[Rfam]
RNA: UnaL2 LINE 3' element
RNA sequence: UGUACGCAUAACUGUAAAUUGCUUUGAAUAAAAGUGUCUGCUAAAUGGCCUAUA
Number, nucleotide and partner (000 for none) at each position: 001u000002g000003u000004a000005c000006g000007c000008a000009u000010a000011a000012c000013u043014g041015u040016a039017a000018a000019u000020u036021g035022c034023u033024u032025u031026g000027a000028a000029u000030a000031a025032a024033a023034g022035u021036g020037u000038c000039u016040g015041c014042u000043a013044a000045a000046u000047g000048g000049c000050c000051u000052a000053u000054a000